The record is a 182-nucleotide sequence from Eufriesea mexicana, which matches "U2 spliceosomal RNA" in Rfam. Clan: U2 clan. By type it is a spliceosomal small nuclear RNA.

RNA sequence: GACCAUUCAUUGAAAAUGAGGAAGCUUAAUCUGUUCUCAUCAGCUUAAUAUCUGGUACACUCGUAACCGGGAGUCAGAAUAUUAGUUUGAUUUUUGGAUAACCGGUGGUAAUCAAGAGCUCGUUCUUAUCCCGCCGCGGGUUGGCUCGGUAUUGCAGUGCCGACGAGUUCAACCCCAGUAGU
Numbered sequence: 001g002a003c004c005a006u007u008c009a010u011u012g013a014a015a016a017u018g019a020g021g022a023a024g025c026u027u028a029a030u031c032u033g034u035u036c037u038c039a040u041c042a043g044c045u046u047a048a049u050a051u052c053u054g055g056u057a058c059a060c061u062c063g064u065a066a067c068c069g070g071g072a073g074u075c076a077g078a079a080u081a082u083u084a085g086u087u088u089g090a091u092u093u094u095u096g097g098a099u100a101a102c103c104g105g106u107g108g109u110a111a112u113c114a115a116g117a118g119c120u121c122g123u124u125c126u127u128a129u130c131c132c133g134c135c136g137c138g139g140g141u142u143g144g145c146u147c148g149g150u151a152u153u154g155c156a157g158u159g160c161c162g163a164c165g166a167g168u169u170c171a172a173c174c175c176c177a178g179u180a181g182u
Stems, first nucleotide, its partner, number of pairs: 007019003039056005059074004064069001104135005110129001115126004138175006145167004150162001